[Rfam]
RNA sequence: AAAGAACACCGUUAGGUGAGGUUACUUUACGGAUAUGGCUAUUGCCCGGAAAUGUCGAGAGACGCCAACGGGUCAGUUGACACUAUCGAAUCAAGGUUUUGUCUAAUAUAGCUGACAGUUCUGUCUAUGCCGUAGAGAGCCAAAGCUCGACGAACAGGGGUGUGGC
Numbered sequence: 001a002a003a004g005a006a007c008a009c010c011g012u013u014a015g016g017u018g019a020g021g022u023u024a025c026u027u028u029a030c031g032g033a034u035a036u037g038g039c040u041a042u043u044g045c046c047c048g049g050a051a052a053u054g055u056c057g058a059g060a061g062a063c064g065c066c067a068a069c070g071g072g073u074c075a076g077u078u079g080a081c082a083c084u085a086u087c088g089a090a091u092c093a094a095g096g097u098u099u100u101g102u103c104u105a106a107u108a109u110a111g112c113u114g115a116c117a118g119u120u121c122u123g124u125c126u127a128u129g130c131c132g133u134a135g136a137g138a139g140c141c142a143a144a145g146c147u148c149g150a151c152g153a154a155c156a157g158g159g160g161u162g163u164g165g166c
Base pairs, nucleotide, nucleotide: 006161007160009158010157011151012150013094015147016146017145020141021140022139025137026136027135028134029133030132031131032130038112039111040110041109042108044073045072046071047070048069053064054063055062056061079103080102081101082100085097086096087095114125115124116123

Shown here is a 166-nucleotide RNA sequence from [Clostridium] methylpentosum, a member of the family "M-box riboswitch aptamer (ykoK leader)". Its family is annotated with response to magnesium ion and regulation of gene expression in the Gene Ontology. Rfam describes the family as follows. M-box riboswitch, also know as ykoK leader is described as a metaloregulatory RNA that sense divalent metals and function as a genetic control element of genes related to divalent metal transport in bacteria. It was first reported upstream of the B.subtilis ykoK gene and genes with related functions in other bacteria.